[Rfam]
This 61-nucleotide sequence belongs to the Rfam family "S15-Flavobacteria ribosomal protein leader". Rfam's curators put it in the seed alignment.
RNA sequence: UAUAUUUGAAGUUCGUUAAAUAACGAAAUACAUAAUAAUCAUUAAAAUUAAUAUUGGCAUG
Dot-bracket structure: ............(((((....)))))...................................